[Rfam]
RNA sequence: UAGAAGUGAAGAUGGAUUUAUCCAUACUGGUAAUUUCUAUGAAUACUGAAUGAGAGUUUAAGCGUAAUUAUAAGUACGUCAGACAUAGAGCCACUCAAUUUAAAAAUGAGUGGUAUUUUUUUAA
Numbered sequence: 001u002a003g004a005a006g007u008g009a010a011g012a013u014g015g016a017u018u019u020a021u022c023c024a025u026a027c028u029g030g031u032a033a034u035u036u037c038u039a040u041g042a043a044u045a046c047u048g049a050a051u052g053a054g055a056g057u058u059u060a061a062g063c064g065u066a067a068u069u070a071u072a073a074g075u076a077c078g079u080c081a082g083a084c085a086u087a088g089a090g091c092c093a094c095u096c097a098a099u100u101u102a103a104a105a106a107u108g109a110g111u112g113g114u115a116u117u118u119u120u121u122u123a124a
Stems, first nucleotide, its partner, number of pairs: 007033001008031001011027001012025005036089006046082003049058003062079005090114008

The family of this 124-nucleotide RNA sequence is "DUF3800-I RNA". About the family: Actinobacteria, Firmicutes, Fusobacteria, Proteobacteria (1 example), Tenericutes (2 examples).